[Rfam]
RNA sequence: AUUCUUGCGCAGAGGCAGUUCAUAGUCCAUGAAGUUUUACUGAAACGUGAUUAUUGCUGGUUGAAAACUUAACCCAAUACCCCGCCGGGAUGACUUGAAAUGUAGUCAGCCUUGGCAAUUUUUGUUAGUCUCCCAGGAGA
Numbered sequence: 001a002u003u004c005u006u007g008c009g010c011a012g013a014g015g016c017a018g019u020u021c022a023u024a025g026u027c028c029a030u031g032a033a034g035u036u037u038u039a040c041u042g043a044a045a046c047g048u049g050a051u052u053a054u055u056g057c058u059g060g061u062u063g064a065a066a067a068c069u070u071a072a073c074c075c076a077a078u079a080c081c082c083c084g085c086c087g088g089g090a091u092g093a094c095u096u097g098a099a100a101u102g103u104a105g106u107c108a109g110c111c112u113u114g115g116c117a118a119u120u121u122u123u124g125u126u127a128g129u130c131u132c133c134c135a136g137g138a139g140a
Stems, first nucleotide, its partner, number of pairs: 020050004025046002033041003084116003087112003091108005129140004
The record is a 140-nucleotide RNA sequence from Dissostichus mawsoni, which matches "U4 spliceosomal RNA" in Rfam.
From the family's description: U4 small nuclear RNA (U4 snRNA) is a component of the major U2-dependent spliceosome.
Rfam 15.1 lists 32,178 matches to the family in 2,547 species.
Rfam classes the family as a spliceosomal small nuclear RNA.